[Rfam]
Nucleotides: 093
Stems, first nucleotide, its partner, number of pairs: 002093007
Number, partner (000 for none) and nucleotide at each position: 001000a002093g003092a004091g005090c006089g007088u008087c009000a010000g011000u012000g013000a014000u015000g016000c017000a018000a019000c020000a021000u022000u023000c024000a025000u026000a027000u028000u029000u030000a031000c032000u033000c034000a035000u036000c037000c038000u039000u040000g041000c042000a043000c044000u045000a046000u047000g048000a049000g050000c051000u052000g053000c054000g055000c056000g057000g058000u059000g060000a061000a062000g063000a064000a065000a066000c067000c068000a069000u070000u071000g072000g073000g074000g075000a076000a077000a078000g079000c080000u081000g082000g083000c084000u085000g086000a087008g088007a089006u090005g091004c092003u093002c
A member of the RNA family "Small nucleolar RNA snoR26" from Paspalum vaginatum, 93 nucleotides long. The literature on the family includes a 2001 paper in RNA by Brown et al., "Multiple snoRNA gene clusters from Arabidopsis". The base pairs follow the family's consensus structure, which was predicted with WAR. Taxonomically the source falls in Paspalum (Eukaryota, Euphyllophyta, Poaceae, Panicoideae). The match comes from Rfam's covariance-model search (71 bits). Gene Ontology terms of the family: RNA processing and nucleolus. Rfam classes the family as a C/D-box small nucleolar RNA.